Rfam assigns this 90-nucleotide RNA sequence from Siminovitchia fortis to the family "pan motif".
The source organism's lineage runs through Bacteria, Bacillati, Bacilli, Bacillaceae and Siminovitchia.
Nucleotides: 090
Stems, first nucleotide, its partner, number of pairs: 001029003004025005010020002056086003059082005065077003
Number, partner (000 for none) and nucleotide at each position: 001029u002028g003027g004025g005024c006023g007022g008021u009000a010020u011019c012000a013000u014000u015000u016000a017000u018000u019011g020010a021008g022007c023006u024005g025004c026000a027003c028002c029001a030000c031000a032000a033000a034000a035000u036000a037000u038000u039000g040000g041000g042000a043000a044000a045000a046000a047000c048000g049000a050000u051000u052000a053000u054000u055000u056086c057085u058084g059082c060081c061080u062079u063078g064000a065077u066076c067075c068000u069000c070000u071000a072000a073000a074000a075067g076066g077065a078063c079062g080061g081060g082059g083000a084058c085057a086056g087000a088000g089000g090000a